[Rfam]
RNA sequence: AGCUCAGCAGGAUUCUUAAUUUAUUUCUUAACCUUUGCUAUGUAAGGGUCUUUGGUGUUUUUAAAUGAUCAUUUCUUCUUCAUACC
Numbered sequence: 001a002g003c004u005c006a007g008c009a010g011g012a013u014u015c016u017u018a019a020u021u022u023a024u025u026u027c028u029u030a031a032c033c034u035u036u037g038c039u040a041u042g043u044a045a046g047g048g049u050c051u052u053u054g055g056u057g058u059u060u061u062u063a064a065a066u067g068a069u070c071a072u073u074u075c076u077u078c079u080u081c082a083u084a085c086c
Base pairs, nucleotide, nucleotide: 009079010078011077012076016064017063018062019061025055026054031049032048033047034046035045036044037043038042
About this RNA
Stem loopII regulatory element in POLB: an 86-nucleotide RNA sequence from Mustela putorius. The literature on the family includes a 2007 paper in Nucleic Acids Res by Sarnowska et al., "Hairpin structure within the 3'UTR of DNA polymerase beta mRNA acts as a post-transcriptional regulatory element and interacts with Hax-1". NCBI's taxonomy places the organism under Eukaryota, Amniota, Eutheria, Mustela, Mustela putorius. Gene Ontology term of the family: regulation of RNA stability.